[Rfam]
RNA sequence: CCAGCGCCUAGCCCGACGGGGUGAAAAGCCGGGUUCCUGCCCCGGCCUGGCGCUGGCACCCGAAUGCAGG
Numbered sequence: 001c002c003a004g005c006g007c008c009u010a011g012c013c014c015g016a017c018g019g020g021g022u023g024a025a026a027a028g029c030c031g032g033g034u035u036c037c038u039g040c041c042c043c044g045g046c047c048u049g050g051c052g053c054u055g056g057c058a059c060c061c062g063a064a065u066g067c068a069g070g
Base pairs, nucleotide, nucleotide: 001056002055003054004053005052006051007050008049011022012021013020014019028046029045030044031043032042036070037069038068039067040066
RNA: int-alpA RNA